[Rfam]
RNA sequence: ACUAAAACAAAAGCGCCUGGACUGAAACUUAAAAAAGUUUUAGUUGACGAGGGACAGGGUUAAUCGAGAUAUCGGCGGGUGCCCUGCGGUGAUUCACCAUCGAUAGCGGAUCUACAAAAUUAUCAAGUGAUUGAUAAUACAAAAGGAUCUAAGUGAAAAAG
Numbered sequence: 001a002c003u004a005a006a007a008c009a010a011a012a013g014c015g016c017c018u019g020g021a022c023u024g025a026a027a028c029u030u031a032a033a034a035a036a037g038u039u040u041u042a043g044u045u046g047a048c049g050a051g052g053g054a055c056a057g058g059g060u061u062a063a064u065c066g067a068g069a070u071a072u073c074g075g076c077g078g079g080u081g082c083c084c085u086g087c088g089g090u091g092a093u094u095c096a097c098c099a100u101c102g103a104u105a106g107c108g109g110a111u112c113u114a115c116a117a118a119a120u121u122a123u124c125a126a127g128u129g130a131u132u133g134a135u136a137a138u139a140c141a142a143a144a145g146g147a148u149c150u151a152a153g154u155g156a157a158a159a160a161g
Base pairs, nucleotide, nucleotide: 020045021044022043023042024041025040026039027038029036055086056085057084058083059082064075065074066073067072087102088101089100090099091098108150109149110148111147112146113145120137121136122135123134124133125132126131

The record is a 161-nucleotide RNA from Andreesenella acetica, which matches "glmS glucosamine-6-phosphate activated ribozyme aptamer" in Rfam.
NCBI's taxonomy places the organism under Bacteria, Bacillati, Peptostreptococcales, Natronincolaceae, Andreesenella.
Rfam's curators write: This entry contains a glucosamine-6-phosphate activated ribozyme that is found in the mRNA for GlmS. GlmS is an enzyme that uses fructose-6-phosphate and glutamine to generate glucosamine-6-phosphate.
The match comes from Rfam's covariance-model search (115 bits).
By type it is a riboswitch.